[Rfam]
RNA sequence: UAUUUAAUUCAUUAUAGUAAUGUGCACAGAAAUUGAAUUGGGUCUCUAGGCCUACCAUCUCUGAUGCCAUUUGGCUUUGAUUUGGGGGCAUGGUUUCGCAGCAAAAUA
Numbered sequence: 001u002a003u004u005u006a007a008u009u010c011a012u013u014a015u016a017g018u019a020a021u022g023u024g025c026a027c028a029g030a031a032a033u034u035g036a037a038u039u040g041g042g043u044c045u046c047u048a049g050g051c052c053u054a055c056c057a058u059c060u061c062u063g064a065u066g067c068c069a070u071u072u073g074g075c076u077u078u079g080a081u082u083u084g085g086g087g088g089c090a091u092g093g094u095u096u097c098g099c100a101g102c103a104a105a106a107u108a
Base pairs, nucleotide, nucleotide: 013024014023015022040091042089043088044087050081052079055074056073
RNA: Small nucleolar RNA snoR100
Organism: Rhododendron williamsianum